[Rfam]
RNA sequence: UAGAGAAGUCAAUGAUGGUCAUGCCCAAGAUGUCUGAACCUGUCUGAAGCAUCUUUUUGAUGUAGUCUAUGUGGUUCUGAGACUUCUCUAAAU
Numbered sequence: 001u002a003g004a005g006a007a008g009u010c011a012a013u014g015a016u017g018g019u020c021a022u023g024c025c026c027a028a029g030a031u032g033u034c035u036g037a038a039c040c041u042g043u044c045u046g047a048a049g050c051a052u053c054u055u056u057u058u059g060a061u062g063u064a065g066u067c068u069a070u071g072u073g074g075u076u077c078u079g080a081g082a083c084u085u086c087u088c089u090a091a092a093u
Stems, first nucleotide, its partner, number of pairs: 004087007
Dot-bracket structure: ...(((((((......................................................................)))))))......
The family of this 93-nucleotide sequence from Mus musculus is "Small nucleolar RNA SNORD91 family". Pairs were carried over by alignment from the consensus structure. The source organism's lineage runs through Eukaryota, Chordata, Amniota, Murinae and Mus. Rfam 15.1 lists 977 matches to the family in 495 species. The literature on the family includes a 2001 paper in EMBO J by Huttenhofer et al., "RNomics: an experimental approach that identifies 201 candidates for novel, small, non-messenger RNAs in mouse".